Rfam assigns this 84-nucleotide RNA from Vitreoscilla sp. to the family "SucA RNA motif". A search with the family's covariance model found it, with a score of 80 bits. Gene Ontology term of the family: regulation of translation. The base pairs follow the family's consensus structure, which is taken from published work.
RNA sequence: UUGCAAUCCGCCAACCGGUAGAACCGGGCCGCGGAAGGUUGAUCAACCCAUCGUAGUCCUGGAAACCGGGACAAAAGGUGAGCG
Numbered sequence: 001u002u003g004c005a006a007u008c009c010g011c012c013a014a015c016c017g018g019u020a021g022a023a024c025c026g027g028g029c030c031g032c033g034g035a036a037g038g039u040u041g042a043u044c045a046a047c048c049c050a051u052c053g054u055a056g057u058c059c060u061g062g063a064a065a066c067c068g069g070g071a072c073a074a075a076a077g078g079u080g081a082g083c084g
Base pairs, nucleotide, nucleotide: 002084003083004082007035008034009033010032011031016026017025018024019023037048038047039046040045049080050079051078052077056072057071058070059069060068061067062066